[Rfam]
RNA sequence: UAACACCUGGGGUGUACGAUCCUCUCUUUAUUUUGAACCUACAUUUACGUUUAUGGGACUCCUAUAUUGUUGAUUGGAUGUCAGGCCGUCAUUACGCAGCGGAAGACAAAAGAGAUACUGCGGUCACCCACCUAGCAGUCGCUAGGCGUCAAAAAAAGGGAAACGGCACUCCGGGGUUAUA
Numbered sequence: 001u002a003a004c005a006c007c008u009g010g011g012g013u014g015u016a017c018g019a020u021c022c023u024c025u026c027u028u029u030a031u032u033u034u035g036a037a038c039c040u041a042c043a044u045u046u047a048c049g050u051u052u053a054u055g056g057g058a059c060u061c062c063u064a065u066a067u068u069g070u071u072g073a074u075u076g077g078a079u080g081u082c083a084g085g086c087c088g089u090c091a092u093u094a095c096g097c098a099g100c101g102g103a104a105g106a107c108a109a110a111a112g113a114g115a116u117a118c119u120g121c122g123g124u125c126a127c128c129c130a131c132c133u134a135g136c137a138g139u140c141g142c143u144a145g146g147c148g149u150c151a152a153a154a155a156a157a158g159g160g161a162a163a164c165g166g167c168a169c170u171c172c173g174g175g176g177u178u179a180u181a
Stems, first nucleotide, its partner, number of pairs: 003178001006175010017165002031155001033154001034151003038146002055129003061123002066119001069118002074113002081106002086102004